RNA sequence: CAUCUAUACUCUGGAGAGAACCGUUUAGGUCGCCGAAGGGUUAGCAAAAAUGCGAUUUUUUGUGAUAUCUCAGGCAAAGAGGACAGAGAAUUAUGA
Numbered sequence: 001c002a003u004c005u006a007u008a009c010u011c012u013g014g015a016g017a018g019a020a021c022c023g024u025u026u027a028g029g030u031c032g033c034c035g036a037a038g039g040g041u042u043a044g045c046a047a048a049a050a051u052g053c054g055a056u057u058u059u060u061u062g063u064g065a066u067a068u069c070u071c072a073g074g075c076a077a078a079g080a081g082g083a084c085a086g087a088g089a090a091u092u093a094u095g096a
Stems, first nucleotide, its partner, number of pairs: 006091002009088005020030003032075003035071002039069003045062006

Glycine riboswitch aptamer: a 96-nucleotide RNA from Peptostreptococcaceae bacterium pGA-8.
This family represents the bacterial glycine riboswitch.
The organism belongs to Peptostreptococcaceae, within Bacteria.
The match comes from Rfam's covariance-model search (48 bits).